[Rfam]
RNA sequence: UGGGCAGGCGCGGGAGAGUGCGGCGGGCCUUGCAGGCCGGUAGCCGCCGCCGAAGGAGCAACCACCCCGGAAUCUCUCAGGCAGCAGGGACCGCGCCGGCCUU
Numbered sequence: 001u002g003g004g005c006a007g008g009c010g011c012g013g014g015a016g017a018g019u020g021c022g023g024c025g026g027g028c029c030u031u032g033c034a035g036g037c038c039g040g041u042a043g044c045c046g047c048c049g050c051c052g053a054a055g056g057a058g059c060a061a062c063c064a065c066c067c068c069g070g071a072a073u074c075u076c077u078c079a080g081g082c083a084g085c086a087g088g089g090a091c092c093g094c095g096c097c098g099g100c101c102u103u
Stems, first nucleotide, its partner, number of pairs: 007097007020047004049082003052078002056076003062070002
Dot-bracket structure: ......(((((((......((((....................)))).(((((..(((...((.....))...))))).)))........)))))))......